[Rfam]
RNA sequence: GAAUCUAUUUAGAGUAAAUUCUCAUCUAGUUAUGAUAAAUCAACAUCUAAAUACUUAGAACCUGUUAGCCUGACUGCAUCCUGAGUGUUUUGUAAAGAGCUUGCUUCUACCCCAAUGAAAUUAUUUCAAAGAAGAGU
Number, nucleotide and partner (000 for none) at each position: 001g000002a000003a000004u135005c134006u133007a000008u130009u129010u000011a000012g126013a000014g124015u000016a000017a000018a121019u120020u000021c000022u000023c117024a116025u115026c000027u000028a000029g110030u109031u000032a000033u000034g000035a000036u000037a000038a000039a000040u000041c000042a000043a000044c000045a000046u000047c000048u000049a000050a000051a000052u000053a000054c000055u000056u000057a000058g000059a000060a000061c000062c000063u000064g000065u000066u000067a000068g000069c000070c000071u000072g000073a000074c000075u000076g000077c000078a000079u000080c000081c000082u000083g000084a000085g000086u000087g000088u000089u000090u000091u000092g000093u000094a000095a000096a000097g000098a000099g000100c000101u000102u000103g000104c000105u000106u000107c000108u000109a030110c029111c000112c000113c000114a000115a025116u024117g023118a000119a000120a019121u018122u000123a000124u014125u000126u012127c000128a000129a009130a008131g000132a000133a006134g005135a004136g000137u000
The record is a 137-nucleotide RNA sequence from Populus alba, which matches "MIR480 microRNA precursor family" in Rfam. The literature on the family includes a 2005 paper in Plant Cell by Lu et al., "Novel and mechanical stress-responsive MicroRNAs in Populus trichocarpa that are absent from Arabidopsis". The family has 69 seed sequences and 3,070 matches in Rfam 15.1.